Shown here is a 204-nucleotide RNA from Rousettus aegyptiacus, a member of the family "Small nucleolar RNA SNORA74". A reference for the family is Ganot et al. (1997), "The family of box ACA small nucleolar RNAs is defined by an evolutionarily conserved secondary structure and ubiquitous sequence elements essential for RNA accumulation", Genes Dev. The match comes from Rfam's covariance-model search (120 bits). About the family: U19 belongs to the H/ACA class of snoRNAs. snoRNAs bind a number of proteins (including dyskerin, Gar1p and Nop10p in the case of the H/ACA class) to form snoRNP complexes. This class are thought to guide the sites of modification of uridines to pseudouridines by forming direct base pairing interactions with substrate RNAs. Targets may include ribosomal and spliceosomal RNAs but the exact functions of many snoRNAs, including U19, are not confirmed. Co-precipitation of U19 snoRNA with RNase MRP RNA suggests that U19 may be involved in pre-rRNA processing. Rfam classes the family as an H/ACA-box small nucleolar RNA. Gene Ontology terms of the family: nucleolus and RNA processing. Rfam 15.1 lists 1,348 matches to the family in 628 species.
RNA sequence: UCCAGCAGUAGUCAGCCAUCUGGACAGAACCAUUCCUGUGAUGGUGUUACACUGCUGGAAGAGGAAUGUCUUGUCUUCUUCCUCCAGUGGCCUCUGUCACUGUUCUGGUGGCGUCUGACACUGGUGCAAGGCAGAACUAUGCUUCCUUAAGAGUUGGCUAAGCAUUCACUUUGGCUGCUUAGUUCUAGUCUGGAAGCAGACACA
Numbered sequence: 001u002c003c004a005g006c007a008g009u010a011g012u013c014a015g016c017c018a019u020c021u022g023g024a025c026a027g028a029a030c031c032a033u034u035c036c037u038g039u040g041a042u043g044g045u046g047u048u049a050c051a052c053u054g055c056u057g058g059a060a061g062a063g064g065a066a067u068g069u070c071u072u073g074u075c076u077u078c079u080u081c082c083u084c085c086a087g088u089g090g091c092c093u094c095u096g097u098c099a100c101u102g103u104u105c106u107g108g109u110g111g112c113g114u115c116u117g118a119c120a121c122u123g124g125u126g127c128a129a130g131g132c133a134g135a136a137c138u139a140u141g142c143u144u145c146c147u148u149a150a151g152a153g154u155u156g157g158c159u160a161a162g163c164a165u166u167c168a169c170u171u172u173g174g175c176u177g178c179u180u181a182g183u184u185c186u187a188g189u190c191u192g193g194a195a196g197c198a199g200a201c202a203c204a
Stems, first nucleotide, its partner, number of pairs: 001059009011050002015045006021038001022036003068137002071134006082126001084124002094113001098110004140198007156184002159181006